Annotation:
A member of the RNA family "Small nucleolar RNA SNORD24" from Equus caballus, 82 nucleotides long. Lineage of the source: Eukaryota > Euteleostomi > Sarcopterygii > Laurasiatheria > Equus. A search with the family's covariance model found it, with a score of 47 bits. A reference for the family is Qu et al. (1995), "U24, a novel intron-encoded small nucleolar RNA with two 12 nt long, phylogenetically conserved complementarities to 28S rRNA", Nucleic Acids Res. The family's RNA type in Rfam is C/D-box small nucleolar RNA. Its family is annotated with nucleolus and RNA processing in the Gene Ontology. The base pairs follow the family's consensus structure, which was predicted with PFOLD.
[Rfam]
RNA sequence: UGCCACAAUGAUGACAUUUUAUUUGCUACUCUUGACUGUAAGAAUGACGAGAAUUAUUACCACCGUUAUCCUAACUGAGGCA
Numbered sequence: 001u002g003c004c005a006c007a008a009u010g011a012u013g014a015c016a017u018u019u020u021a022u023u024u025g026c027u028a029c030u031c032u033u034g035a036c037u038g039u040a041a042g043a044a045u046g047a048c049g050a051g052a053a054u055u056a057u058u059a060c061c062a063c064c065g066u067u068a069u070c071c072u073a074a075c076u077g078a079g080g081c082a
Stems, first nucleotide, its partner, number of pairs: 001082004